Record summary
Rfam assigns this 134-nucleotide RNA from Pteropus vampyrus to the family "Small nucleolar RNA SNORA1". The match comes from Rfam's covariance-model search (100 bits). Gene Ontology terms of the family: RNA processing and nucleolus. Rfam describes the family as follows. ACA1 is a member of the H/ACA class of snoRNA that guide the sites of modification of uridines to pseudouridines.
RNA sequence: AGCCUCAUUCUUGAUGAGCAUGGGAGUUGUUGAUCAUGGUGUUCAGGAAGUUUAAUGGGGCCAAAUUGAGACACGGUUUAUUUUUCCAUCCCAGUAAAUUUAUUGCGAUGGUGACAAUAAGACCUGUAACUUUU
Numbered sequence: 001a002g003c004c005u006c007a008u009u010c011u012u013g014a015u016g017a018g019c020a021u022g023g024g025a026g027u028u029g030u031u032g033a034u035c036a037u038g039g040u041g042u043u044c045a046g047g048a049a050g051u052u053u054a055a056u057g058g059g060g061c062c063a064a065a066u067u068g069a070g071a072c073a074c075g076g077u078u079u080a081u082u083u084u085u086c087c088a089u090c091c092c093a094g095u096a097a098a099u100u101u102a103u104u105g106c107g108a109u110g111g112u113g114a115c116a117a118u119a120a121g122a123c124c125u126g127u128a129a130c131u132u133u134u
Stems, first nucleotide, its partner, number of pairs: 002061003006057003021045004026040002073127004087113004